About this RNA:
The family of this 67-nucleotide RNA from Solibacillus sp. R5-41 is "Bacillaceae-1 RNA". By type it is a small RNA.
RNA sequence: GCGUAGAGAGCAAAGGCUAAGCCUGUCACGUCCAGUGACAACGCCUUUGUGAUCAACGUCGUGUUGG
Dot-bracket structure: ..........(((((((.......(((((.....)))))...)))))))...(((((.....)))))